Overview:
The family of this 75-nucleotide RNA from Oncorhynchus kisutch is "mir-101 microRNA precursor family". NCBI's taxonomy places the organism under Eukaryota, Craniata, Teleostei, Osteoglossocephalai, Oncorhynchus.
RNA sequence: UGCCCUGGUUCAGUUAUCACUGUGCUGAUGCUGUCCAUCUUAAAGGUACAGUACUGUGAUAACUGAAGGAUGGUU
Numbered sequence: 001u002g003c004c005c006u007g008g009u010u011c012a013g014u015u016a017u018c019a020c021u022g023u024g025c026u027g028a029u030g031c032u033g034u035c036c037a038u039c040u041u042a043a044a045g046g047u048a049c050a051g052u053a054c055u056g057u058g059a060u061a062a063c064u065g066a067a068g069g070a071u072g073g074u075u
Stems, first nucleotide, its partner, number of pairs: 011065010022054004027049001029048004
Rfam 15.1 lists 1,334 matches to the family in 644 species.